[Rfam]
RNA sequence: CUCUUAUCAAGAGAGGUUGAGGGAUCUGGCCCUUUGACGCCUCGGCAACCAUUGAACUUAAUUGUUCAACAGGUGCCAAAUCCAGCAGAACAAUACGUUCUGAAAGAUGAGGG
Numbered sequence: 001c002u003c004u005u006a007u008c009a010a011g012a013g014a015g016g017u018u019g020a021g022g023g024a025u026c027u028g029g030c031c032c033u034u035u036g037a038c039g040c041c042u043c044g045g046c047a048a049c050c051a052u053u054g055a056a057c058u059u060a061a062u063u064g065u066u067c068a069a070c071a072g073g074u075g076c077c078a079a080a081u082c083c084a085g086c087a088g089a090a091c092a093a094u095a096c097g098u099u100c101u102g103a104a105a106g107a108u109g110a111g112g113g
Stems, first nucleotide, its partner, number of pairs: 001113008013043005021032003026085004044077004049073002052069004081105001086102006
RNA: SAM riboswitch aptamer (S box leader)